[Rfam]
Glycine riboswitch aptamer: a 76-nucleotide RNA from Clostridium acetireducens. The organism belongs to Clostridium acetireducens, within Bacteria.
RNA sequence: CUCUGGAGAGACUUUUUAAAAGCACCGAAGGAGAAAGCUGAUUAAUUCAGUGAAACUCUCAGGUAAAAGGACAGAG
Numbered sequence: 001c002u003c004u005g006g007a008g009a010g011a012c013u014u015u016u017u018a019a020a021a022g023c024a025c026c027g028a029a030g031g032a033g034a035a036a037g038c039u040g041a042u043u044a045a046u047u048c049a050g051u052g053a054a055a056c057u058c059u060c061a062g063g064u065a066a067a068a069g070g071a072c073a074g075a076g
Base pairs, nucleotide, nucleotide: 001076002075003074004073005072012022013021014020024064025063026062027060028059031058032057033056037051038050039049040048